Guanidine-II riboswitch aptamer (mini-ykkC): a 47-nucleotide RNA sequence from Crenobacter luteus. Its family is annotated with regulation of gene expression in the Gene Ontology. Taxonomically the source falls in Crenobacter (Bacteria, Pseudomonadati, Pseudomonadota, Neisseriales).

RNA sequence: GCGCGGGGACGGCCCCGCGUGCGCCCUCCACCCCGGGGACGGCCCCG
Numbered sequence: 001g002c003g004c005g006g007g008g009a010c011g012g013c014c015c016c017g018c019g020u021g022c023g024c025c026c027u028c029c030a031c032c033c034c035g036g037g038g039a040c041g042g043c044c045c046c047g
Stems, first nucleotide, its partner, number of pairs: 001020008034047005